L31-Gammaproteobacteria ribosomal protein leader: a 50-nucleotide sequence from Moritella marina. The source organism's lineage runs through Bacteria, Pseudomonadati, Gammaproteobacteria, Moritellaceae and Moritella marina.

RNA sequence: UAUGUGGUGUCUGGCAGUGUUUCAGAUGGCGACAUAACCUAAAUUGAGGU
Numbered sequence: 001u002a003u004g005u006g007g008u009g010u011c012u013g014g015c016a017g018u019g020u021u022u023c024a025g026a027u028g029g030c031g032a033c034a035u036a037a038c039c040u041a042a043a044u045u046g047a048g049g050u
Base pairs, nucleotide, nucleotide: 001036002035003034004033005032007030008029011025012024013023014022015019